[Rfam]
RNA sequence: CUGUUCCUUUUUCCUAUGCAUAUACCUCUUUGAAAAAUGAAUGUAAAGGGGCAUAGGGCAUGGGAAAAUGGCGCAG
Numbered sequence: 001c002u003g004u005u006c007c008u009u010u011u012u013c014c015u016a017u018g019c020a021u022a023u024a025c026c027u028c029u030u031u032g033a034a035a036a037a038u039g040a041a042u043g044u045a046a047a048g049g050g051g052c053a054u055a056g057g058g059c060a061u062g063g064g065a066a067a068a069u070g071g072c073g074c075a076g
Stems, first nucleotide, its partner, number of pairs: 010067010021055003025051008

The family of this 76-nucleotide RNA sequence from Xenopus tropicalis is "mir-202 microRNA precursor family". It is one of the family's seed sequences. The source organism's lineage runs through Eukaryota, Teleostomi, Dipnotetrapodomorpha, Batrachia and Silurana.